RNA sequence: AAACAGAGAAGUCAACCAGAGAAACACACGUUGUGGUAUAUUACCUGGUA
Numbered sequence: 001a002a003a004c005a006g007a008g009a010a011g012u013c014a015a016c017c018a019g020a021g022a023a024a025c026a027c028a029c030g031u032u033g034u035g036g037u038a039u040a041u042u043a044c045c046u047g048g049u050a
Base pairs, nucleotide, nucleotide: 015049016048017047018046019045027035028034029033
Record summary:
Rfam assigns this 50-nucleotide RNA sequence from Tobacco ringspot virus satellite RNA to the family "Hairpin ribozyme". Gene Ontology term of the family: RNA nuclease activity. Pairs were carried over by alignment from the consensus structure, which is taken from published work. Rfam's curators put it in the seed alignment.